Record summary: Rfam assigns this 76-nucleotide RNA sequence from Geotrypetes seraphini to the family "mir-216 microRNA precursor family". Pairs were carried over by alignment from the consensus structure, which was predicted with WAR. A reference for the family is Shao et al. (2008), "Identification of novel chicken microRNAs and analysis of their genomic organization", Gene. The organism belongs to Geotrypetes, within Eukaryota. A search with the family's covariance model found it, with a score of 68 bits. Clan: mir-216 clan.
RNA sequence: AGAUUGGGAAAUCUCUGCUGGCAACUGUGAUGUCAUCAUAGGAAUCUCAUAAUUACCCGUAGAGAUUCUUUAAUCU
Number, nucleotide and partner (000 for none) at each position: 001a000002g000003a074004u073005u072006g071007g070008g000009a000010a067011a066012u065013c064014u063015c062016u061017g060018c000019u000020g058021g057022c000023a054024a053025c000026u051027g050028u049029g048030a047031u000032g000033u000034c000035a000036u000037c000038a000039u000040a000041g000042g000043a000044a000045u000046c000047u030048c029049a028050u027051a026052a000053u024054u023055a000056c000057c021058c020059g000060u017061a016062g015063a014064g013065a012066u011067u010068c000069u000070u007071u006072a005073a004074u003075c000076u000